[Rfam]
RNA sequence: GAAAAAGCAGGGCCUUGUUGCCUUAUGUGAACAUGGCUCUCGUAAACUUCAGGGAAAUUAAUUGCAUUGUUAUUGGGUGAACCUCUGUUGUUAUCGGUGGCUGGAAGGUUCAGUAAAUGAUGGUAUAUGC
Dot-bracket structure: ....(((...((.(.((..............)).).))........)))...............(((((((......(((((((.....................)))))))...)))))))........
Numbered sequence: 001g002a003a004a005a006a007g008c009a010g011g012g013c014c015u016u017g018u019u020g021c022c023u024u025a026u027g028u029g030a031a032c033a034u035g036g037c038u039c040u041c042g043u044a045a046a047c048u049u050c051a052g053g054g055a056a057a058u059u060a061a062u063u064g065c066a067u068u069g070u071u072a073u074u075g076g077g078u079g080a081a082c083c084u085c086u087g088u089u090g091u092u093a094u095c096g097g098u099g100g101c102u103g104g105a106a107g108g109u110u111c112a113g114u115a116a117a118u119g120a121u122g123g124u125a126u127a128u129g130c
Stems, first nucleotide, its partner, number of pairs: 005049003011038002014035001016033002065122007078112007

The record is a 130-nucleotide sequence from Salix dunnii, which matches "Small nucleolar RNA snoR74" in Rfam. The organism belongs to Salix, within Eukaryota. Its family is annotated with nucleolus and RNA processing in the Gene Ontology. By type it is an H/ACA-box small nucleolar RNA.